[Rfam]
This 70-nucleotide RNA sequence from Sciurus carolinensis belongs to the Rfam family "Small nucleolar RNA SNORD34". The family is grouped with related families in Rfam's "SNORD34 clan". Pairs were carried over by alignment from the consensus structure, which was predicted with PFOLD. The literature on the family includes a 2002 paper in Mol Cell Biol by Galardi et al., "Purified box C/D snoRNPs are able to reproduce site-specific 2'-O-methylation of target RNA in vitro". The match comes from Rfam's covariance-model search (62 bits). snoRNA U34 is found in intron 5 of the ribosomal protein L13a gene in humans. The family's RNA type in Rfam is C/D-box small nucleolar RNA. Gene Ontology terms of the family: RNA processing and nucleolus. Lineage of the source: Eukaryota > Glires > Sciurinae > Sciurini > Sciurus.
RNA sequence: AGCGUCCAUGAUGUUAUGAAAUUACCUACAUUGUUUGAGCCUUAUGAAAACAUCACUGGCUGAGACGCCU
Numbered sequence: 001a002g003c004g005u006c007c008a009u010g011a012u013g014u015u016a017u018g019a020a021a022u023u024a025c026c027u028a029c030a031u032u033g034u035u036u037g038a039g040c041c042u043u044a045u046g047a048a049a050a051c052a053u054c055a056c057u058g059g060c061u062g063a064g065a066c067g068c069c070u
Base pairs, nucleotide, nucleotide: 001070002069003067004066005065006064